[Rfam]
RNA: Acido-Lenti-1 RNA
RNA sequence: UCUAGCUCUCACGAGCUAGGCUAAAUCAUGGCGUGCUUUCAGCACU
Numbered sequence: 001u002c003u004a005g006c007u008c009u010c011a012c013g014a015g016c017u018a019g020g021c022u023a024a025a026u027c028a029u030g031g032c033g034u035g036c037u038u039u040c041a042g043c044a045c046u
Stems, first nucleotide, its partner, number of pairs: 001020008033045005